[Rfam]
RNA sequence: UUCUUAUCCAGAGAGGUGGAGGGACUGGCCCGACGAAACCCGGCAACCUACAUUGAUUUCAAUGAAAGGUGCUAAUUCCAGCAGAACUAUAAGUUCUGGAAGAUGAGGG
Numbered sequence: 001u002u003c004u005u006a007u008c009c010a011g012a013g014a015g016g017u018g019g020a021g022g023g024a025c026u027g028g029c030c031c032g033a034c035g036a037a038a039c040c041c042g043g044c045a046a047c048c049u050a051c052a053u054u055g056a057u058u059u060c061a062a063u064g065a066a067a068g069g070u071g072c073u074a075a076u077u078c079c080a081g082c083a084g085a086a087c088u089a090u091a092a093g094u095u096c097u098g099g100a101a102g103a104u105g106a107g108g109g
Base pairs, nucleotide, nucleotide: 001109002108003107004106005105006104007103008102013041015040016039017038021031022030023029025081026080027079028078042073043072044071045070047069048068049065051064052063077101082098083097084096085095086094087093
RNA: SAM riboswitch aptamer (S box leader)
Organism: Serpentinicella alkaliphila